[Rfam]
RNA sequence: CCAGAGGGUCGGGCGGCCGCCGGCGCGUUUAUCGUGCGGGAGGAAAGUCCGGGCUCCGAGGAGCGGCGGUGCCGGGUAACGCCCGGCGGGGGUGACCCCAGGGAAAGUGCCACAGAAAAUAAACCGCCCGGCGGGCCGGCAACGGCUCCGGGUAAGGGCGAAACGGUGCGGCAAGAGCGCACCGCGCGGAUGGCAACAUCGGCGGCAUGGCAAACCCCACCGGGAGCAAGACCGAAUAGGGACGGCAUAUGGGCCUGCUCCGCCCCGUCGUCCGGGUUGGUUGCUGGAGGCCGCAGGCGACUGCGGCCCUAGAGGAAUGGUCGCCCAUCCGGCCUUCGGGCCGGUGGACAGAACCCGGCUUACAGACCCUCUGGCGCU
Numbered sequence: 001c002c003a004g005a006g007g008g009u010c011g012g013g014c015g016g017c018c019g020c021c022g023g024c025g026c027g028u029u030u031a032u033c034g035u036g037c038g039g040g041a042g043g044a045a046a047g048u049c050c051g052g053g054c055u056c057c058g059a060g061g062a063g064c065g066g067c068g069g070u071g072c073c074g075g076g077u078a079a080c081g082c083c084c085g086g087c088g089g090g091g092g093u094g095a096c097c098c099c100a101g102g103g104a105a106a107g108u109g110c111c112a113c114a115g116a117a118a119a120u121a122a123a124c125c126g127c128c129c130g131g132c133g134g135g136c137c138g139g140c141a142a143c144g145g146c147u148c149c150g151g152g153u154a155a156g157g158g159c160g161a162a163a164c165g166g167u168g169c170g171g172c173a174a175g176a177g178c179g180c181a182c183c184g185c186g187c188g189g190a191u192g193g194c195a196a197c198a199u200c201g202g203c204g205g206c207a208u209g210g211c212a213a214a215c216c217c218c219a220c221c222g223g224g225a226g227c228a229a230g231a232c233c234g235a236a237u238a239g240g241g242a243c244g245g246c247a248u249a250u251g252g253g254c255c256u257g258c259u260c261c262g263c264c265c266c267g268u269c270g271u272c273c274g275g276g277u278u279g280g281u282u283g284c285u286g287g288a289g290g291c292c293g294c295a296g297g298c299g300a301c302u303g304c305g306g307c308c309c310u311a312g313a314g315g316a317a318u319g320g321u322c323g324c325c326c327a328u329c330c331g332g333c334c335u336u337c338g339g340g341c342c343g344g345u346g347g348a349c350a351g352a353a354c355c356c357g358g359c360u361u362a363c364a365g366a367c368c369c370u371c372u373g374g375c376g377c378u
Base pairs, nucleotide, nucleotide: 001374002373003372004371005370006369007368008367009366010365011363012325013324014323015322016321017320018319020040021039023037024036025035026034027033045361046360047359049358050357051356052355053354054226055225056224057223061260062259063258064257067222068221069220070219071218072086073085074084075083076082087101088099089098090097091096102217103216107215108214109211110210111209124157125156126153127152128151129150130149131148133146165183166182167181168180169179170178184206185204186203187202189200190199191198192197230282231281232280233279240273241272242271243270244269245268251265252264253263254262289308290307291306292305293304294303295302296301
RNA: Bacterial RNase P class A
Organism: Sphingomonas oleivorans